[Rfam]
RNA: Molybdenum/Tungsten riboswitch aptamer (Moco RNA motif)
RNA sequence: AUAAAGAUCGUUUUCCGAGUUAUUUCUUCUAAAGAGAAAUCCAUGAAGACAUAACCGUUGGUUAUUCCAUAAGGGUUUAGCGAGAAAUUGCUGAGCCUCCCAUUUUGGAAAGGAAAAUACUUUAUUUUGAG
Numbered sequence: 001a002u003a004a005a006g007a008u009c010g011u012u013u014u015c016c017g018a019g020u021u022a023u024u025u026c027u028u029c030u031a032a033a034g035a036g037a038a039a040u041c042c043a044u045g046a047a048g049a050c051a052u053a054a055c056c057g058u059u060g061g062u063u064a065u066u067c068c069a070u071a072a073g074g075g076u077u078u079a080g081c082g083a084g085a086a087a088u089u090g091c092u093g094a095g096c097c098u099c100c101c102a103u104u105u106u107g108g109a110a111a112g113g114a115a116a117a118u119a120c121u122u123u124a125u126u127u128u129g130a131g
Stems, first nucleotide, its partner, number of pairs: 003125001006122001011117006019055005025049005034041002057070002060068002073098011099108002